[Rfam]
RNA sequence: AGGAUCCGGUGUAACUGGCGACGGAAGUGGGCAACCACGGGGGAGCAUCGGAACAUAUGGCCGGUCGCCUGGGCAAAGAGC
Numbered sequence: 001a002g003g004a005u006c007c008g009g010u011g012u013a014a015c016u017g018g019c020g021a022c023g024g025a026a027g028u029g030g031g032c033a034a035c036c037a038c039g040g041g042g043g044a045g046c047a048u049c050g051g052a053a054c055a056u057a058u059g060g061c062c063g064g065u066c067g068c069c070u071g072g073g074c075a076a077a078g079a080g081c
Base pairs, nucleotide, nucleotide: 003054005052006051007050008049009048010047011046012045015042016041017069018068019067020066021065027038028037029036030035058076060074061073062072
RNA: ZMP/ZTP riboswitch aptamer (pfl RNA motif)
Organism: Paenibacillus sp. 598K